[Rfam]
A member of the RNA family "c-di-AMP riboswitch aptamer (ydaO/yuaA leader)" from Rudaeicoccus suwonensis, 162 nucleotides long.

RNA sequence: GAGCAGCCACCGCAGAUCCGGGAUGGUCCCGGAGGCACGACGAGGAUGGGGAACCCAAUUCGGCCGUGAAUUCGGCCUUGGGGUGAGAGCAGGCCACACACCUGCCGGGCACCUGACAGCCCGACCCGACAGCUAACCCCGUAUGCGCACGUCAGGAGAGGA
Numbered sequence: 001g002a003g004c005a006g007c008c009a010c011c012g013c014a015g016a017u018c019c020g021g022g023a024u025g026g027u028c029c030c031g032g033a034g035g036c037a038c039g040a041c042g043a044g045g046a047u048g049g050g051g052a053a054c055c056c057a058a059u060u061c062g063g064c065c066g067u068g069a070a071u072u073c074g075g076c077c078u079u080g081g082g083g084u085g086a087g088a089g090c091a092g093g094c095c096a097c098a099c100a101c102c103u104g105c106c107g108g109g110c111a112c113c114u115g116a117c118a119g120c121c122c123g124a125c126c127c128g129a130c131a132g133c134u135a136a137c138c139c140c141g142u143a144u145g146c147g148c149a150c151g152u153c154a155g156g157a158g159a160g161g162a
Stems, first nucleotide, its partner, number of pairs: 011147004018045002046142006056080002081127003090104004107122004